[Rfam]
RNA sequence: GCACUAGAACAUAAAAACACUGUCCGGUUGGUAGUCCUGAUGCACUGAAUAAUUCAGUGUCGUAUCCUUCCCUCUCGGGAUGUCCCUUGUUCAGCAACUGUUU
Numbered sequence: 001g002c003a004c005u006a007g008a009a010c011a012u013a014a015a016a017a018c019a020c021u022g023u024c025c026g027g028u029u030g031g032u033a034g035u036c037c038u039g040a041u042g043c044a045c046u047g048a049a050u051a052a053u054u055c056a057g058u059g060u061c062g063u064a065u066c067c068u069u070c071c072c073u074c075u076c077g078g079g080a081u082g083u084c085c086c087u088u089g090u091u092c093a094g095c096a097a098c099u100g101u102u103u
Base pairs, nucleotide, nucleotide: 005094007092008091009090010089011088022041023040024039026037027036042060043059044058045057046056047055048054049053069080070079071078072077
The family of this 103-nucleotide sequence from Desulfosporosinus orientis is "azaaromatic riboswitch aptamer (yjdF RNA)".